[Rfam]
RNA sequence: CAAGCGGCUAGGGUAGCUCCCGAAAAGUCGGACCCUAACCGACCUGCCGCUCCUUCCGAUUAGGG
Numbered sequence: 001c002a003a004g005c006g007g008c009u010a011g012g013g014u015a016g017c018u019c020c021c022g023a024a025a026a027g028u029c030g031g032a033c034c035c036u037a038a039c040c041g042a043c044c045u046g047c048c049g050c051u052c053c054u055u056c057c058g059a060u061u062a063g064g065g
Base pairs, nucleotide, nucleotide: 003051004050005049006048007047008046011021012020013019027043028042029041030040031039033065034064035063036062037061
RNA: int-alpA RNA